[Rfam]
RNA sequence: CAAAAAGUGAUCUAGGGUUCCGAUGUUGCCACAAGUAGCAUGACUGGACCGAGAGAUGACGGUUCGUAAGAACUACACGGAGGGAUAAAAGCCCGGGAGGU
Numbered sequence: 001c002a003a004a005a006a007g008u009g010a011u012c013u014a015g016g017g018u019u020c021c022g023a024u025g026u027u028g029c030c031a032c033a034a035g036u037a038g039c040a041u042g043a044c045u046g047g048a049c050c051g052a053g054a055g056a057u058g059a060c061g062g063u064u065c066g067u068a069a070g071a072a073c074u075a076c077a078c079g080g081a082g083g084g085a086u087a088a089a090a091g092c093c094c095g096g097g098a099g100g101u
Base pairs, nucleotide, nucleotide: 007060008059010057011056012055015050016049020047021046022044023041024040025039026038027037028036061074062073063072064071065070076096078099082094083093084092
Dot-bracket structure: ......((.(((..((...(((((((((.......))))))..).)).))....))).))(((((....))))).(.[...(((.......))).)..]..